[Rfam]
A member of the RNA family "Molybdenum/Tungsten riboswitch aptamer (Moco RNA motif)" from Anoxynatronum buryatiense, 122 nucleotides long.
Gene Ontology terms of the family: tungstate binding, molybdenum ion binding and regulation of gene expression.
The family's consensus secondary structure is taken from published work.
RNA sequence: GAUCAGAAUUUUUUCCGAGUUGUAUUUUUCUAAGGGAAGGCAUUCCUAUGAAGAGCAACCGUCGGGUACUGGGAGAAAUCCCCGUGCCUCCCGUGAUGGAAAGGAAAAAAGCCCCCCAGGGA
Numbered sequence: 001g002a003u004c005a006g007a008a009u010u011u012u013u014u015c016c017g018a019g020u021u022g023u024a025u026u027u028u029u030c031u032a033a034g035g036g037a038a039g040g041c042a043u044u045c046c047u048a049u050g051a052a053g054a055g056c057a058a059c060c061g062u063c064g065g066g067u068a069c070u071g072g073g074a075g076a077a078a079u080c081c082c083c084g085u086g087c088c089u090c091c092c093g094u095g096a097u098g099g100a101a102a103g104g105a106a107a108a109a110a111g112c113c114c115c116c117c118a119g120g121g122a
Stems, first nucleotide, its partner, number of pairs: 006113001011108006019059005025053001028052003034047004064089006071082004090099002
Dot-bracket structure: .....(....((((((..(((((.(..(((...((((......))))..)))).)))))....((((((.((((....)))).))))))((......))...))))))....).........

NCBI's taxonomy places the organism under Bacteria, Bacillati, Clostridia, Clostridiaceae, Anoxynatronum.